RNA sequence: CUGUUACCCGGUUCAAGUAAUCCAGGAUAGGCUUUUCUCUAUCUGCUUCGGCCUAUGCUUGAUUACUUGCACUUGGGGCCGG
Numbered sequence: 001c002u003g004u005u006a007c008c009c010g011g012u013u014c015a016a017g018u019a020a021u022c023c024a025g026g027a028u029a030g031g032c033u034u035u036u037c038u039c040u041a042u043c044u045g046c047u048u049c050g051g052c053c054u055a056u057g058c059u060u061g062a063u064u065a066c067u068u069g070c071a072c073u074u075g076g077g078g079c080c081g082g
Stems, first nucleotide, its partner, number of pairs: 002081002005078001007076002010073003014069009024059002027056007
Shown here is an 82-nucleotide RNA from Scophthalmus maximus, a member of the family "mir-26 microRNA precursor family". The literature on the family includes a 2002 paper in Curr Biol by Lagos-Quintana et al., "Identification of tissue-specific microRNAs from mouse". Taxonomically the source falls in Scophthalmus (Eukaryota, Bilateria, Craniata, Percomorphaceae). Its family is annotated with miRNA-mediated post-transcriptional gene silencing and RISC complex in the Gene Ontology.